[Rfam]
Nucleotides: 201
Stems, first nucleotide, its partner, number of pairs: 003060003007056001009055001021046005027038002070194007078187003081181003087176006
Number, partner (000 for none) and nucleotide at each position: 001000c002000u003060g004059c005058a006000c007056a008000g009055c010000a011000g012000u013000u014000a015000u016000c017000c018000c019000u020000u021046u022045c023044u024043a025042g026000c027038c028037u029000g030000g031000c032000u033000c034000c035000u036000g037028g038027g039000a040000c041000u042025c043024u044023a045022g046021a047000g048000g049000g050000a051000g052000u053000c054000a055009g056007u057000c058005u059004g060003c061000a062000a063000c064000a065000g066000u067000a068000a069000g070194u071193g072192g073191u074190g075189a076188g077000u078187u079186c080185u081181g082180u083179c084000c085000a086000g087176c088175a089174u090173c091172a092171a093000u094000a095000u096000u097000u098000u099000g100000u101000u102000u103000u104000a105000u106000u107000u108000u109000u110000u111000u112000u113000a114000u115000u116000u117000a118000u119000u120000u121000u122000u123000u124000u125000u126000u127000u128000c129000u130000u131000u132000u133000c134000u135000u136000u137000a138000g139000g140000c141000c142000c143000a144000u145000u146000c147000a148000u149000g150000u151000a152000c153000u154000u155000g156000u157000a158000u159000a160000g161000c162000a163000u164000c165000a166000a167000u168000a169000u170000u171092u172091u173090g174089a175088u176087g177000g178000u179083g180082g181081c182000u183000u184000u185080a186079g187078a188076c189075u190074u191073g192072c193071c194070a195000g196000g197000u198000g199000u200000c201000a
Background: Rfam assigns this 201-nucleotide sequence from Microcebus murinus to the family "Small nucleolar RNA SNORA56". The organism belongs to Microcebus, within Eukaryota. The base pairs follow the family's consensus structure. ACA56 is a member of the H/ACA class of snoRNA that guide the sites of modification of uridines to pseudouridines.